[Rfam]
A member of the RNA family "L31-Gammaproteobacteria ribosomal protein leader" from Tolumonas lignilytica, 51 nucleotides long. The literature on the family includes a 2020 paper in BMC Microbiol by Eckert and Weinberg, "Discovery of 20 novel ribosomal leader candidates in bacteria and archaea". Rfam classes the family as a cis-regulatory leader. The sequence is in the family's curated seed alignment.

RNA sequence: CGUGUGGUGUCUGGCUUCGGGUCAGAUGGCGACACGGCCUGAAUCAGAGGU
Numbered sequence: 001c002g003u004g005u006g007g008u009g010u011c012u013g014g015c016u017u018c019g020g021g022u023c024a025g026a027u028g029g030c031g032a033c034a035c036g037g038c039c040u041g042a043a044u045c046a047g048a049g050g051u
Base pairs, nucleotide, nucleotide: 001036002035003034004033005032007030008029011025012024013023014022015020
Dot-bracket structure: (((((.((..(((((....).))))...)).)))))...............
About this RNA: Clan: Ribosomal Protein L31 Leader clan.